Purine riboswitch aptamer: a 98-nucleotide RNA sequence from Weissella soli. A search with the family's covariance model found it, with a score of 52 bits.
RNA sequence: ACGAAAUUAGUUUUCGAAGCAGAUAUAAUCCGAGAAAAUGGCUUGGAUGUUUCUACCGCCCACCGAAAGUGGCGACUAUCCGCGAAUAUUUGAAAUUA
Numbered sequence: 001a002c003g004a005a006a007u008u009a010g011u012u013u014u015c016g017a018a019g020c021a022g023a024u025a026u027a028a029u030c031c032g033a034g035a036a037a038a039u040g041g042c043u044u045g046g047a048u049g050u051u052u053c054u055a056c057c058g059c060c061c062a063c064c065g066a067a068a069g070u071g072g073c074g075a076c077u078a079u080c081c082g083c084g085a086a087u088a089u090u091u092g093a094a095a096u097u098a
Stems, first nucleotide, its partner, number of pairs: 019083002022080004029047006057074004062070001